[Rfam]
RNA sequence: UGCUCCCUGGGGUGUUUGCCAGUCGAUAAAGUCCUGAGCCGAUGCACUUUUUUAUGGAAGGUUUCACUCGCUGAUGUGCGCAUGUCCGCCCGACGGAAAGCCUGAUUCAGUGUCUGGCCUGCCACCUUGGACCACAGGGUUCAAGGCCUUUAUUUACGACAGCGGCACAGUGGGGAGCCC
Numbered sequence: 001u002g003c004u005c006c007c008u009g010g011g012g013u014g015u016u017u018g019c020c021a022g023u024c025g026a027u028a029a030a031g032u033c034c035u036g037a038g039c040c041g042a043u044g045c046a047c048u049u050u051u052u053u054a055u056g057g058a059a060g061g062u063u064u065c066a067c068u069c070g071c072u073g074a075u076g077u078g079c080g081c082a083u084g085u086c087c088g089c090c091c092g093a094c095g096g097a098a099a100g101c102c103u104g105a106u107u108c109a110g111u112g113u114c115u116g117g118c119c120u121g122c123c124a125c126c127u128u129g130g131a132c133c134a135c136a137g138g139g140u141u142c143a144a145g146g147c148c149u150u151u152a153u154u155u156a157c158g159a160c161a162g163c164g165g166c167a168c169a170g171u172g173g174g175g176a177g178c179c180c
Base pairs, nucleotide, nucleotide: 002178003177004176005175006174007173008172009171012168013167014166015165017164018163019162031148033146034145035143036142037141038140039139040138056123057122060119061118062117063116069112070111071110072109073108074107080101081100085097086096087095088094
Notes: The record is a 180-nucleotide RNA sequence from Venatorbacter sp. C2-1, which matches "6S / SsrS RNA" in Rfam. Rfam describes the family as follows. E. coli 6S RNA was the first non coding RNA to be sequenced, but its function was unknown until recently. Rfam 15.1 lists 5,006 matches to the family in 4,638 species. It scores 101 bits against the family's covariance model. By type it is a non-coding RNA gene. The base pairs follow the family's consensus structure, which is taken from published work. NCBI's taxonomy places the organism under Bacteria, Pseudomonadota, Gammaproteobacteria, Oceanospirillales, Venatoribacter.